[Rfam]
RNA sequence: UUCGUGGGUCGUGACUGGCGCUGAGGUGGAGCACCACCGUGGAGCGACCCACGCGGAGUGAAUGCCGUGCGCCUGGGCGAUUGGU
Numbered sequence: 001u002u003c004g005u006g007g008g009u010c011g012u013g014a015c016u017g018g019c020g021c022u023g024a025g026g027u028g029g030a031g032c033a034c035c036a037c038c039g040u041g042g043a044g045c046g047a048c049c050c051a052c053g054c055g056g057a058g059u060g061a062a063u064g065c066c067g068u069g070c071g072c073c074u075g076g077g078c079g080a081u082u083g084g085u
Stems, first nucleotide, its partner, number of pairs: 003053010015041001017073005026037004063079004